[Rfam]
RNA sequence: ACUUUCGAAGGGAUAGCCACCCUUCCUCUUUCAGGCUCUUUAAACUAGAGCCUGAAAGAGGAAGGGUGGCUAUCCCUUCGAAAGC
Numbered sequence: 001a002c003u004u005u006c007g008a009a010g011g012g013a014u015a016g017c018c019a020c021c022c023u024u025c026c027u028c029u030u031u032c033a034g035g036c037u038c039u040u041u042a043a044a045c046u047a048g049a050g051c052c053u054g055a056a057a058g059a060g061g062a063a064g065g066g067u068g069g070c071u072a073u074c075c076c077u078u079c080g081a082a083a084g085c
Base pairs, nucleotide, nucleotide: 002084003083006080007079009077010076011075012074013073014072015071016070017069018068019067020066021065023063024062025061026060027059028058029057030056031055032054034052035051036050037049038048039047
Dot-bracket structure: .((..((.(((((((((((((.((((((((((.((((((.......)))))).)))))))))).))))))))))))).))..)).
Rfam assigns this 85-nucleotide RNA sequence from Armadillidium nasatum to the family "mir-1684 microRNA precursor family". Its family is annotated with RISC complex and miRNA-mediated post-transcriptional gene silencing in the Gene Ontology. A search with the family's covariance model found it, with a score of 61 bits.